Small nucleolar RNA Z103: a 102-nucleotide RNA sequence from Punica granatum. The family has 12 seed sequences and 2,844 matches in Rfam 15.1. A reference for the family is Chen et al. (2003), "The high diversity of snoRNAs in plants: identification and comparative study of 120 snoRNA genes from Oryza sativa", Nucleic Acids Res. The match comes from Rfam's covariance-model search (85 bits). By type it is a C/D-box small nucleolar RNA.
RNA sequence: AUGGAACUGAUGAUUAUUUCCCCAAAUGAUCGACGCUGAUUAUACCGUGCUAACUAUUACAUUCCUCUUUGGUGAGGAAUCAUGCCAGUGGUGCUGAUCCAU
Numbered sequence: 001a002u003g004g005a006a007c008u009g010a011u012g013a014u015u016a017u018u019u020c021c022c023c024a025a026a027u028g029a030u031c032g033a034c035g036c037u038g039a040u041u042a043u044a045c046c047g048u049g050c051u052a053a054c055u056a057u058u059a060c061a062u063u064c065c066u067c068u069u070u071g072g073u074g075a076g077g078a079a080u081c082a083u084g085c086c087a088g089u090g091g092u093g094c095u096g097a098u099c100c101a102u
Base pairs, nucleotide, nucleotide: 001102002101003100004099005098